[Rfam]
RNA sequence: GGCAAAGGGAGACGAUGACGCUCCGGGGGGAACGCGGUCACCUUGUACACGUCCCCGAAGCAGAGUCAAUGGUGAGACCGGUCCACAUGGUC
Numbered sequence: 001g002g003c004a005a006a007g008g009g010a011g012a013c014g015a016u017g018a019c020g021c022u023c024c025g026g027g028g029g030g031a032a033c034g035c036g037g038u039c040a041c042c043u044u045g046u047a048c049a050c051g052u053c054c055c056c057g058a059a060g061c062a063g064a065g066u067c068a069a070u071g072g073u074g075a076g077a078c079c080g081g082u083c084c085a086c087a088u089g090g091u092c
Base pairs, nucleotide, nucleotide: 001091003089007084008083009082011067012066013065020061021060022059023057025056026055027054028053036079037078038075039074040073041072042071
Shown here is a 92-nucleotide RNA sequence, a member of the family "c-di-GMP-II-GAG riboswitch aptamer". It is one of the family's seed sequences. A reference for the family is Weinberg et al. (2017), "Bioinformatic analysis of riboswitch structures uncovers variant classes with altered ligand specificity", Proc Natl Acad Sci U S A.